[Rfam]
RNA sequence: UCCUCCUCCCAUCAAUCACAAAUGUCCUUAAUGGCAUUUAAGGAUUGCUAUUAAGGACAUUUGUGAUUCACGGGAGGAGGU
Number, nucleotide and partner (000 for none) at each position: 001u000002c080003c079004u078005c077006c076007u075008c074009c073010c072011a000012u000013c000014a068015a067016u066017c065018a064019c063020a062021a061022a060023u059024g058025u057026c056027c055028u054029u053030a052031a051032u050033g000034g048035c047036a046037u000038u000039u000040a000041a000042g000043g000044a000045u000046u036047g035048c034049u000050a032051u031052u030053a029054a028055g027056g026057a025058c024059a023060u022061u021062u020063g019064u018065g017066a016067u015068u014069c000070a000071c000072g010073g009074g008075a007076g006077g005078a004079g003080g002081u000
A member of the RNA family "mir-4477 microRNA precursor family" from Homo sapiens, 81 nucleotides long.
Rfam's curators put it in the seed alignment.
The base pairs follow the family's consensus structure, which was predicted with RNAalifold.